A member of the RNA family "small nucleolar RNA snoR137" from Protea cynaroides, 153 nucleotides long. It scores 85 bits against the family's covariance model. The family's consensus secondary structure was predicted with RNAalifold. The family has 4 seed sequences and 808 matches in Rfam 15.1. Gene Ontology terms of the family: nucleolus and RNA processing. Rfam classes the family as an H/ACA-box small nucleolar RNA. Lineage of the source: Eukaryota > Magnoliopsida > Mesangiospermae > Proteales > Protea.

RNA sequence: GGUGCUUCUUACUGGUGGACUCUCUCUGAUUCUGGGGGAUGUUCAUGUUUCAGAAGCAUAAAUAAAUGGAAGAUAUAUGUUCCAGUAUAAAACAGCAUGGUGUGUUUUAUCAUUUUGCACCGUGUUACCUGUUACCUGUUUCCUGGUAUACUU
Numbered sequence: 001g002g003u004g005c006u007u008c009u010u011a012c013u014g015g016u017g018g019a020c021u022c023u024c025u026c027u028g029a030u031u032c033u034g035g036g037g038g039a040u041g042u043u044c045a046u047g048u049u050u051c052a053g054a055a056g057c058a059u060a061a062a063u064a065a066a067u068g069g070a071a072g073a074u075a076u077a078u079g080u081u082c083c084a085g086u087a088u089a090a091a092a093c094a095g096c097a098u099g100g101u102g103u104g105u106u107u108u109a110u111c112a113u114u115u116u117g118c119a120c121c122g123u124g125u126u127a128c129c130u131g132u133u134a135c136c137u138g139u140u141u142c143c144u145g146g147u148a149u150a151c152u153u
Stems, first nucleotide, its partner, number of pairs: 003058006016045005021039005082146004087141001094133003098122005